[Rfam]
RNA sequence: AUUACGACUCGGUAGGUGAGGCUACUACGCGGAUACGGAUUACUGCCGCAAAAUAGUGGAGACACUAUGAGCUGGUAUGAACAGUUGUGGUCGAUUAAGGCUUCAACGAAUGUAAUUUCAUCGCCUCGCAGAGUUAAAGCUCAAACGGGACUGCUU
Numbered sequence: 001a002u003u004a005c006g007a008c009u010c011g012g013u014a015g016g017u018g019a020g021g022c023u024a025c026u027a028c029g030c031g032g033a034u035a036c037g038g039a040u041u042a043c044u045g046c047c048g049c050a051a052a053a054u055a056g057u058g059g060a061g062a063c064a065c066u067a068u069g070a071g072c073u074g075g076u077a078u079g080a081a082c083a084g085u086u087g088u089g090g091u092c093g094a095u096u097a098a099g100g101c102u103u104c105a106a107c108g109a110a111u112g113u114a115a116u117u118u119c120a121u122c123g124c125c126u127c128g129c130a131g132a133g134u135u136a137a138a139g140c141u142c143a144a145a146c147g148g149g150a151c152u153g154c155u156u
Stems, first nucleotide, its partner, number of pairs: 006151001008149004013098001015141003020135003025131002028128002031125002039116005045076003048072002055066004084107004090101003
RNA: M-box riboswitch aptamer (ykoK leader)